Notes:
Photosynthesis regulatory RNA1: a 74-nucleotide RNA sequence from Stanieria cyanosphaera. Pairs were carried over by alignment from the consensus structure, which was predicted with CMfinder. The organism belongs to Stanieria cyanosphaera, within Bacteria.

RNA sequence: AAAAUAUUUUUUUUUUCAUCUUUCGUCAACAUUGAUUUCUCCUAAUGAACCUUGGUAGCAGUGCCGAGGUUUUU
Numbered sequence: 001a002a003a004a005u006a007u008u009u010u011u012u013u014u015u016u017c018a019u020c021u022u023u024c025g026u027c028a029a030c031a032u033u034g035a036u037u038u039c040u041c042c043u044a045a046u047g048a049a050c051c052u053u054g055g056u057a058g059c060a061g062u063g064c065c066g067a068g069g070u071u072u073u074u
Stems, first nucleotide, its partner, number of pairs: 049070008